[Rfam]
c-di-AMP riboswitch aptamer (ydaO/yuaA leader): a 154-nucleotide RNA sequence from Cohnella faecalis. The pairing is the family consensus, mapped onto this sequence.

RNA sequence: AAUCUAACAAGGCCAAAACCGUAAUGGUGCGGGGGAACGUUCUAAUCGCGCGGUUUAUCCGCGCUUGGGGUGAAUCGCAAGCCUUCGGGCUGCGCAGGGUCGACUCCAUACCCGAAUCCGACAGCUAACCUCGCCGGCCGUAUGAGGAGGAGCA
Numbered sequence: 001a002a003u004c005u006a007a008c009a010a011g012g013c014c015a016a017a018a019c020c021g022u023a024a025u026g027g028u029g030c031g032g033g034g035g036a037a038c039g040u041u042c043u044a045a046u047c048g049c050g051c052g053g054u055u056u057a058u059c060c061g062c063g064c065u066u067g068g069g070g071u072g073a074a075u076c077g078c079a080a081g082c083c084u085u086c087g088g089g090c091u092g093c094g095c096a097g098g099g100u101c102g103a104c105u106c107c108a109u110a111c112c113c114g115a116a117u118c119c120g121a122c123a124g125c126u127a128a129c130c131u132c133g134c135c136g137g138c139c140g141u142a143u144g145a146g147g148a149g150g151a152g153c154a
Base pairs, nucleotide, nucleotide: 011139012138013137014136018028019027020026029134030133031132032131033130034129068119069118070117076094077093078092079091097113098112099111100110